[Rfam]
RNA sequence: UGUUAAGAGGUUGCCUCUGUCGUUACCUGCUCAAGCAGAUACGGGAAUGCAACUGUUGA
Numbered sequence: 001u002g003u004u005a006a007g008a009g010g011u012u013g014c015c016u017c018u019g020u021c022g023u024u025a026c027c028u029g030c031u032c033a034a035g036c037a038g039a040u041a042c043g044g045g046a047a048u049g050c051a052a053c054u055g056u057u058g059a
Base pairs, nucleotide, nucleotide: 009054010053011052012051013050014049020044021043022042023041027038028037029036
RNA: Transposase-1 RNA